[Rfam]
RNA sequence: AAAAUUCUCAGUGCCUUUUGGCUUAGAUCAAGUGUAGUAUCUGUAAGUUCCUCUUCCCUCUCACUCUUCUUGAUCCUCCUGCUAACAAUCCUCUCAGGUUCUUCUCAGUUUAAUCGCUGGGAUAGCCCUACGGGGUUCCUUCUGAUUAAUCCACUCUUUGGAAACCGCUCCUGGGCCGCUGGGCUUGCCUAUGUCCGGGGGCACAGUGUCGCUCGUAUUGCACUGCCUCGGGCCGACGCGAACUUUU
Numbered sequence: 001a002a003a004a005u006u007c008u009c010a011g012u013g014c015c016u017u018u019u020g021g022c023u024u025a026g027a028u029c030a031a032g033u034g035u036a037g038u039a040u041c042u043g044u045a046a047g048u049u050c051c052u053c054u055u056c057c058c059u060c061u062c063a064c065u066c067u068u069c070u071u072g073a074u075c076c077u078c079c080u081g082c083u084a085a086c087a088a089u090c091c092u093c094u095c096a097g098g099u100u101c102u103u104c105u106c107a108g109u110u111u112a113a114u115c116g117c118u119g120g121g122a123u124a125g126c127c128c129u130a131c132g133g134g135g136u137u138c139c140u141u142c143u144g145a146u147u148a149a150u151c152c153a154c155u156c157u158u159u160g161g162a163a164a165c166c167g168c169u170c171c172u173g174g175g176c177c178g179c180u181g182g183g184c185u186u187g188c189c190u191a192u193g194u195c196c197g198g199g200g201g202c203a204c205a206g207u208g209u210c211g212c213u214c215g216u217a218u219u220g221c222a223c224u225g226c227c228u229c230g231g232g233c234c235g236a237c238g239c240g241a242a243c244u245u246u247u
Base pairs, nucleotide, nucleotide: 008027009026013022014021015020048122049121050120051119124137125136126135127134128133167202168201169200170199171198172197173196174195180191181190182189183188206239207238208237209236210235211233212232213231214230215229